Record summary
The family of this 115-nucleotide RNA from Frankia alni is "SAM (S-adenosyl methionine) riboswitch aptamer". The family is grouped with related families in Rfam's "SAM clan". Pairs were carried over by alignment from the consensus structure, which is taken from published work. Rfam describes the family as follows. SAM-IV is a mRNA element that regulates gene expression via direct sensing of S-adenosylmethionine (SAM or AdoMet).
RNA sequence: CGUCUUGAGUGCCAGCGUUCAGCCCCGGCUUGCUGGCCGGCAACCCUCCUUAUGCAGCGGGGUGCCCCGGGUGGUGACGAGGCCGCGGCAACCCCGCCGACGGCAAGUGCCGACC
Numbered sequence: 001c002g003u004c005u006u007g008a009g010u011g012c013c014a015g016c017g018u019u020c021a022g023c024c025c026c027g028g029c030u031u032g033c034u035g036g037c038c039g040g041c042a043a044c045c046c047u048c049c050u051u052a053u054g055c056a057g058c059g060g061g062g063u064g065c066c067c068c069g070g071g072u073g074g075u076g077a078c079g080a081g082g083c084c085g086c087g088g089c090a091a092c093c094c095c096g097c098c099g100a101c102g103g104c105a106a107g108u109g110c111c112g113a114c115c
Stems, first nucleotide, its partner, number of pairs: 001079004009038001011037006021030002039066003044062003048057001082104004086099004